[Rfam]
RNA sequence: GCGCGCCUGUCAGGAGAGAGCCCCCUCGCGGGGGCCGCCGAAGGCGCAGUGGCACUGGCGAUCCCACGCUGCGAACGCUCAGGCAAAAGGACUGACGAAACGCC
Numbered sequence: 001g002c003g004c005g006c007c008u009g010u011c012a013g014g015a016g017a018g019a020g021c022c023c024c025c026u027c028g029c030g031g032g033g034g035c036c037g038c039c040g041a042a043g044g045c046g047c048a049g050u051g052g053c054a055c056u057g058g059c060g061a062u063c064c065c066a067c068g069c070u071g072c073g074a075a076c077g078c079u080c081a082g083g084c085a086a087a088a089g090g091a092c093u094g095a096c097g098a099a100a101c102g103c104c
Stems, first nucleotide, its partner, number of pairs: 008097006020035004037084003040080002044078003050071004
This 104-nucleotide sequence from Mitsuaria sp. PDC51 belongs to the Rfam family "Glycine riboswitch aptamer". About the family: This family represents the bacterial glycine riboswitch. The source organism's lineage runs through Bacteria, Pseudomonadati, Betaproteobacteria, Burkholderiales and Roseateles.